This 84-nucleotide RNA from Papaver somniferum belongs to the Rfam family "Small nucleolar RNA Z102/R77". Rfam 15.1 lists 1,346 matches to the family in 224 species. A reference for the family is Chen et al. (2003), "The high diversity of snoRNAs in plants: identification and comparative study of 120 snoRNA genes from Oryza sativa", Nucleic Acids Res. The family's RNA type in Rfam is C/D-box small nucleolar RNA.

RNA sequence: GAAUGAGGUGAUGAUUAGGUAAUUUCCCUAUUUGUUUGAUUGCUGGAAUGAUGGCUUAAAUGUAUUAGCUCUAGCUGAUCGUUC
Numbered sequence: 001g002a003a004u005g006a007g008g009u010g011a012u013g014a015u016u017a018g019g020u021a022a023u024u025u026c027c028c029u030a031u032u033u034g035u036u037u038g039a040u041u042g043c044u045g046g047a048a049u050g051a052u053g054g055c056u057u058a059a060a061u062g063u064a065u066u067a068g069c070u071c072u073a074g075c076u077g078a079u080c081g082u083u084c
Stems, first nucleotide, its partner, number of pairs: 002083004042055003
The family is grouped with related families in Rfam's "SNORD44 clan".
Gene Ontology terms of the family: RNA processing and nucleolus.
It scores 68 bits against the family's covariance model.